[Rfam]
RNA sequence: GUUCCAGUGAGAUAUGUUUGAUAUUCUUGGUUGUCGCAUUAAACGGUUCACCCAGGAAUCAAACAUAUUAUUACUGCGAU
Dot-bracket structure: ....(((((.((((((((((((.((...((.((...............)).)).)).))))))))))))..)))))....
Numbered sequence: 001g002u003u004c005c006a007g008u009g010a011g012a013u014a015u016g017u018u019u020g021a022u023a024u025u026c027u028u029g030g031u032u033g034u035c036g037c038a039u040u041a042a043a044c045g046g047u048u049c050a051c052c053c054a055g056g057a058a059u060c061a062a063a064c065a066u067a068u069u070a071u072u073a074c075u076g077c078g079a080u
Stems, first nucleotide, its partner, number of pairs: 005076005011069012024056002029053002032050002